RNA: Glycine riboswitch aptamer
Organism: Sphaerotilus mobilis
RNA sequence: UGGCCGUCGCCAGGAGAGAGCCACUGGGCUGCAGGUCCGAUCAACACGGCGUUUUUCGCCGAUCGACCUGACCGCAAACAGGGCCGCCGAAGGCGCAGAGACCGGCCGAGCAAGCCGGCCUCGAACGCUCAGGCAAAAGGACUGGCACACGUCU
Numbered sequence: 001u002g003g004c005c006g007u008c009g010c011c012a013g014g015a016g017a018g019a020g021c022c023a024c025u026g027g028g029c030u031g032c033a034g035g036u037c038c039g040a041u042c043a044a045c046a047c048g049g050c051g052u053u054u055u056u057c058g059c060c061g062a063u064c065g066a067c068c069u070g071a072c073c074g075c076a077a078a079c080a081g082g083g084c085c086g087c088c089g090a091a092g093g094c095g096c097a098g099a100g101a102c103c104g105g106c107c108g109a110g111c112a113a114g115c116c117g118g119c120c121u122c123g124a125a126c127g128c129u130c131a132g133g134c135a136a137a138a139g140g141a142c143u144g145g146c147a148c149a150c151g152u153c154u
Stems, first nucleotide, its partner, number of pairs: 009146005020084003086134003089130002093128003099121002
Dot-bracket structure: ........(((((......(((...........................................................))).(((((..(((...((...................))....))))).))).......)))))........